[Rfam]
The record is a 92-nucleotide sequence from a Candidatus Zixiibacteriota bacterium, which matches "Selenocysteine transfer RNA" in Rfam. It scores 72 bits against the family's covariance model. For this family Rfam cites "Eukaryotic selenocysteine tRNA has the 9/4 secondary structure" (Mizutani and Goto, FEBS Lett, 2000).
RNA sequence: GGAAGCGGAUAGGGUCUGGUGGCCCUUGCGGUCUUCAAAACCGUGGGGAGGCGGUUAUGCCGUCUCCGGUGGGUUCGAUUCCUACCCCUUCC
Numbered sequence: 001g002g003a004a005g006c007g008g009a010u011a012g013g014g015u016c017u018g019g020u021g022g023c024c025c026u027u028g029c030g031g032u033c034u035u036c037a038a039a040a041c042c043g044u045g046g047g048g049a050g051g052c053g054g055u056u057a058u059g060c061c062g063u064c065u066c067c068g069g070u071g072g073g074u075u076c077g078a079u080u081c082c083u084a085c086c087c088c089u090u091c092c
Stems, first nucleotide, its partner, number of pairs: 001092005007086002011026006027045006047067005070084004